[Rfam]
RNA: MIR4371 microRNA precursor family
RNA sequence: CUGUUAAGUGAUGAUGUGGCAGAUAGAGUGUCAUGUCAUCAUGCCUUGUCACAGACACCUCAUUGUCACAUCAUCACCUUCAAUGACAUGUCAAUGAUUGGACGUGAUGAUGUGACACUCUGUCUACCAAGUCAUCACUUAAUGGAA
Numbered sequence: 001c002u003g004u005u006a007a008g009u010g011a012u013g014a015u016g017u018g019g020c021a022g023a024u025a026g027a028g029u030g031u032c033a034u035g036u037c038a039u040c041a042u043g044c045c046u047u048g049u050c051a052c053a054g055a056c057a058c059c060u061c062a063u064u065g066u067c068a069c070a071u072c073a074u075c076a077c078c079u080u081c082a083a084u085g086a087c088a089u090g091u092c093a094a095u096g097a098u099u100g101g102a103c104g105u106g107a108u109g110a111u112g113u114g115a116c117a118c119u120c121u122g123u124c125u126a127c128c129a130a131g132u133c134a135u136c137a138c139u140u141a142a143u144g145g146a147a
Base pairs, nucleotide, nucleotide: 001145002144003143004142005141006140007139008138009137010136011135012134013133014132015131017129018128019127021125022124023123024122025121026120027119028118029117030116031115032114033113034112035111036110037109038108039107040106041105042104043103045101046100048098049097050096051095054092055091056090057089072085073084074083